Small nucleolar RNA SNORA46: a 136-nucleotide RNA sequence from Alectura lathami. The organism belongs to Alectura, within Eukaryota. The base pairs follow the family's consensus structure, which was predicted with RNAfold. ACA46 is a member of the H/ACA class of snoRNA that guide the sites of modification of uridines to pseudouridines. Rfam classes the family as an H/ACA-box small nucleolar RNA. Gene Ontology terms of the family: nucleolus and RNA processing.

RNA sequence: AGCACUAUUUUUAAACCUGUUGGUGGAAUUUCCUGGCCGCCGUGGGUUACGCUGUAGUGCAAAAGAAUCUCCUGGCUCUUUGGAGCAGAGCUGGCCUUCUGUGCAGCUGGUGCUACUCUGGAGCUAAGGGACAGAG
Numbered sequence: 001a002g003c004a005c006u007a008u009u010u011u012u013a014a015a016c017c018u019g020u021u022g023g024u025g026g027a028a029u030u031u032c033c034u035g036g037c038c039g040c041c042g043u044g045g046g047u048u049a050c051g052c053u054g055u056a057g058u059g060c061a062a063a064a065g066a067a068u069c070u071c072c073u074g075g076c077u078c079u080u081u082g083g084a085g086c087a088g089a090g091c092u093g094g095c096c097u098u099c100u101g102u103g104c105a106g107c108u109g110g111u112g113c114u115a116c117u118c119u120g121g122a123g124c125u126a127a128g129g130g131a132c133a134g135a136g
Stems, first nucleotide, its partner, number of pairs: 002060007014048004021042006068131002071129003074125006082117001085113003089108003093104001
Dot-bracket structure: .(((((((.....((((...((((((..........))))))..)))).....))))))).......((.(((((((((..(..(((.(((.(..........).)))..)))...)..)))))).))))).....